Shown here is a 101-nucleotide RNA sequence from Shimwellia blattae, a member of the family "Gammaprotebacteria rimP leader". NCBI's taxonomy places the organism under Bacteria, Pseudomonadati, Pseudomonadota, Shimwellia, Shimwellia blattae.
RNA sequence: GCCGCGUAUUGCGGCAUAUAGGUUCAGUUAUAUAAAACCUCGAUCUUUCGGGGUUUUUUGUUAUCUGGCAGUAGUAUAACUGGGCUUUACGCCCUUUUUUU
Numbered sequence: 001g002c003c004g005c006g007u008a009u010u011g012c013g014g015c016a017u018a019u020a021g022g023u024u025c026a027g028u029u030a031u032a033u034a035a036a037a038c039c040u041c042g043a044u045c046u047u048u049c050g051g052g053g054u055u056u057u058u059u060g061u062u063a064u065c066u067g068g069c070a071g072u073a074g075u076a077u078a079a080c081u082g083g084g085c086u087u088u089a090c091g092c093c094c095u096u097u098u099u100u101u
Stems, first nucleotide, its partner, number of pairs: 034057009082094004